[Rfam]
RNA sequence: UUAAUAGACAUCUAGGGUUCCGACUGAUUUAUCAGUGCCUGGUCCAAGAGUUGUCAACCUCUUCUGAGGUCACACGGCGGGAAAAAAGCCCGGGAGGC
Numbered sequence: 001u002u003a004a005u006a007g008a009c010a011u012c013u014a015g016g017g018u019u020c021c022g023a024c025u026g027a028u029u030u031a032u033c034a035g036u037g038c039c040u041g042g043u044c045c046a047a048g049a050g051u052u053g054u055c056a057a058c059c060u061c062u063u064c065u066g067a068g069g070u071c072a073c074a075c076g077g078c079g080g081g082a083a084a085a086a087a088g089c090c091c092g093g094g095a096g097g098c
Base pairs, nucleotide, nucleotide: 007055008054009053010052012050015045016044020042021041022039023036024035025034026033027032057070058069059068060067061066073093075096079091080090081089
RNA: Guanidine-I riboswitch aptamer